[Rfam]
RNA sequence: UCGACCGUCCCGGGGUGCCUGUAACCAGGCUGAGAUGCACAAGGUGCGAACCCGUCGAACCUGAUCCGGAUCACACCGGCGGAGGAAGAGACGAAGCUUGGAACA
Numbered sequence: 001u002c003g004a005c006c007g008u009c010c011c012g013g014g015g016u017g018c019c020u021g022u023a024a025c026c027a028g029g030c031u032g033a034g035a036u037g038c039a040c041a042a043g044g045u046g047c048g049a050a051c052c053c054g055u056c057g058a059a060c061c062u063g064a065u066c067c068g069g070a071u072c073a074c075a076c077c078g079g080c081g082g083a084g085g086a087a088g089a090g091a092c093g094a095a096g097c098u099u100g101g102a103a104c105a
Stems, first nucleotide, its partner, number of pairs: 006093004011054004016048001017030005037047004060085003066079004
RNA: TPP riboswitch aptamer (THI element)
Organism: Cohaesibacter marisflavi